RNA sequence: UGCUCCGGUAGCAGGGGCGCCUUCUUUUCCAAGGACCAUGACGGCGGGAAAAGCACCCCUCCAAGCCCCACCCCUCCCGCCCGCCGCGCACGUUCACCCGCUCUCACCCGCGCGGGUGAACAUCGUGAACUCCGCUGGAUUCGUGGCCCCUUGCCUGCCCUACGCUCAGCCCAACACAACCGCAGACAUGCGACGGCCCCCGCCGGGACGGCAAUCCCAGUGCGAGGGCCUGACCACCGAGGAAGUAGGAGCUUCCCG
Numbered sequence: 001u002g003c004u005c006c007g008g009u010a011g012c013a014g015g016g017g018c019g020c021c022u023u024c025u026u027u028u029c030c031a032a033g034g035a036c037c038a039u040g041a042c043g044g045c046g047g048g049a050a051a052a053g054c055a056c057c058c059c060u061c062c063a064a065g066c067c068c069c070a071c072c073c074c075u076c077c078c079g080c081c082c083g084c085c086g087c088g089c090a091c092g093u094u095c096a097c098c099c100g101c102u103c104u105c106a107c108c109c110g111c112g113c114g115g116g117u118g119a120a121c122a123u124c125g126u127g128a129a130c131u132c133c134g135c136u137g138g139a140u141u142c143g144u145g146g147c148c149c150c151u152u153g154c155c156u157g158c159c160c161u162a163c164g165c166u167c168a169g170c171c172c173a174a175c176a177c178a179a180c181c182g183c184a185g186a187c188a189u190g191c192g193a194c195g196g197c198c199c200c201c202g203c204c205g206g207g208a209c210g211g212c213a214a215u216c217c218c219a220g221u222g223c224g225a226g227g228g229c230c231u232g233a234c235c236a237c238c239g240a241g242g243a244a245g246u247a248g249g250a251g252c253u254u255c256c257c258g
Stems, first nucleotide, its partner, number of pairs: 007238003016081004094119008134170005195230005201224003205218004241256005
This 258-nucleotide RNA from Streptomyces fuscichromogenes belongs to the Rfam family "Streptomyces sRNA 4677". Located in the intergenic region between anti-sigma factor SCO4677 gene and a putative regulatory protein gene SCO4676. scr4677 expression requires the SCO4677 activity and scr4677 sRNA itself seem to affect the levels of the SCO4676-associated transcripts. By type it is a small RNA. Lineage of the source: Bacteria > Actinomycetota > Actinomycetes > Streptomycetaceae > Streptomyces. A reference for the family is Hindra et al. (2014), "Complex intra-operonic dynamics mediated by a small RNA in Streptomyces coelicolor", PLoS One.